[Rfam]
RNA sequence: GUCAUACUACGGUGCAUCGUAGUAGAAAGUAAACGAUGACCCAUAGGGAACUCUGGGUUAAAAUACGUAUCAAAAUGCAAACCUGAAUCCUGACCUGGAGCCUGCUCCGGGUCAGGUUUCUUU
Numbered sequence: 001g002u003c004a005u006a007c008u009a010c011g012g013u014g015c016a017u018c019g020u021a022g023u024a025g026a027a028a029g030u031a032a033a034c035g036a037u038g039a040c041c042c043a044u045a046g047g048g049a050a051c052u053c054u055g056g057g058u059u060a061a062a063a064u065a066c067g068u069a070u071c072a073a074a075a076u077g078c079a080a081a082c083c084u085g086a087a088u089c090c091u092g093a094c095c096u097g098g099a100g101c102c103u104g105c106u107c108c109g110g111g112u113c114a115g116g117u118u119u120c121u122u123u
Base pairs, nucleotide, nucleotide: 001040002039003038004037005036010035011034014030015029041048042047057071059069060068089116090115091114092113093112094111095110096109097108098107099106
Overview
A member of the RNA family "Enterobacteria greA leader" from Pantoea alhagi, 123 nucleotides long. A search with the family's covariance model found it, with a score of 121 bits. For this family Rfam cites "Premature terminator analysis sheds light on a hidden world of bacterial transcriptional attenuation" (Naville and Gautheret, Genome Biol, 2010). Rfam classes the family as a cis-regulatory leader. Taxonomically the source falls in Pantoea (Bacteria, Pseudomonadati, Gammaproteobacteria, Erwiniaceae). Its family is annotated with regulation of gene expression in the Gene Ontology.